[Rfam]
RNA sequence: GCUCUGUGAUGAACCUCAUGCGUGUCAUCUGAGCCUGGCUUCCCUGUCAUCUCAGCCCAGGUAGUGUUCUACUUCCCGGGGCUUGUUUGGCUUGGCAGGGAGGUCCUGGGCAAAGGAUCAGUUUCUGUCUUCUGAGAGC
Numbered sequence: 001g002c003u004c005u006g007u008g009a010u011g012a013a014c015c016u017c018a019u020g021c022g023u024g025u026c027a028u029c030u031g032a033g034c035c036u037g038g039c040u041u042c043c044c045u046g047u048c049a050u051c052u053c054a055g056c057c058c059a060g061g062u063a064g065u066g067u068u069c070u071a072c073u074u075c076c077c078g079g080g081g082c083u084u085g086u087u088u089g090g091c092u093u094g095g096c097a098g099g100g101a102g103g104u105c106c107u108g109g110g111c112a113a114a115g116g117a118u119c120a121g122u123u124u125c126u127g128u129c130u131u132c133u134g135a136g137a138g139c
Base pairs, nucleotide, nucleotide: 001139002138003137004136042100043099044098045097046096047095048094049093
RNA: Small nucleolar RNA SNORD10
Organism: Otolemur garnettii